[Rfam]
This 71-nucleotide RNA sequence from Ruegeria sp. ANG-R belongs to the Rfam family "Singlet oxygen resistance RNA X".
The organism belongs to Ruegeria, within Bacteria.
From the family's description: SorX (RSs2461)like SorY is a singlet oxygen induced sRNA that counteracts oxidative stress by targeting mRNA for a transporter in Rhodobacter. It also has an impact on resistance against organic hydroperoxides. It targets SD sequence of potA mRNA via an aSD sequence. The aSD sequence and some neighbouring nucleotides are identical to the one of SorY (targets takP mRNA).
RNA sequence: AACCCGCGCAUGUCCGGGUUAUGACAUGCACCUCCCUGUUGGACUGCCGGGCCUGAUGGCCCGGCUUUUUU
Numbered sequence: 001a002a003c004c005c006g007c008g009c010a011u012g013u014c015c016g017g018g019u020u021a022u023g024a025c026a027u028g029c030a031c032c033u034c035c036c037u038g039u040u041g042g043a044c045u046g047c048c049g050g051g052c053c054u055g056a057u058g059g060c061c062c063g064g065c066u067u068u069u070u071u
Stems, first nucleotide, its partner, number of pairs: 008029007046065008